The record is an 86-nucleotide RNA sequence from Macaca mulatta, which matches "mir-937 microRNA precursor family" in Rfam. For this family Rfam cites "Patterns of known and novel small RNAs in human cervical cancer" (Lui et al., Cancer Res, 2007). The source organism's lineage runs through Eukaryota, Metazoa, Deuterostomia, Euteleostomi and Macaca. Its family is annotated with miRNA-mediated post-transcriptional gene silencing and RISC complex in the Gene Ontology. Rfam's curators put it in the seed alignment.

[Rfam]
Nucleotides: 086
Base pairs, nucleotide, nucleotide: 001086002085003084005081006080007079008078013072014071015070016066017065018064019063020062021061022060023059024058025057026056028054029053032049033048034047036045
Number, partner (000 for none) and nucleotide at each position: 001086a002085g003084c004000a005081c006080u007079g008078c009000c010000c011000c012000c013072g014071g015070u016066g017065a018064g019063u020062c021061a022060g023059g024058g025057u026056g027000g028054g029053g030000c031000u032049g033048g034047c035000c036045c037000c038000c039000u040000g041000c042000u043000u044000c045036g046000c047034g048033c049032c050000c051000a052000u053029c054028c055000g056026c057025a058024c059023u060022c061021u062020g063019a064018c065017u066016c067000u068000c069000c070015a071014c072013c073000u074000g075000c076000c077000u078008g079007c080006a081005g082000g083000a084003g085002c086001u